The family of this 107-nucleotide RNA from Salipaludibacillus agaradhaerens is "SAM riboswitch aptamer (S box leader)". Rfam links the family to the GO term regulation of gene expression. Lineage of the source: Bacteria > Bacilli > Caryophanales > Bacillaceae > Salipaludibacillus.

[Rfam]
RNA sequence: CUCUUAUCAAGAGAGGCGGAGGGACUGACCCUAUGAGGCCUCGGCAACCAGUACACGUGUACACGGUGCCAAUUUCAGAGGAAUGUUUGACAUUCCGAAGAUGAGAA
Numbered sequence: 001c002u003c004u005u006a007u008c009a010a011g012a013g014a015g016g017c018g019g020a021g022g023g024a025c026u027g028a029c030c031c032u033a034u035g036a037g038g039c040c041u042c043g044g045c046a047a048c049c050a051g052u053a054c055a056c057g058u059g060u061a062c063a064c065g066g067u068g069c070c071a072a073u074u075u076c077a078g079a080g081g082a083a084u085g086u087u088u089g090a091c092a093u094u095c096c097g098a099a100g101a102u103g104a105g106a107a
Stems, first nucleotide, its partner, number of pairs: 002106007013042005021031003025078004043070004048066002051062004074099001080096006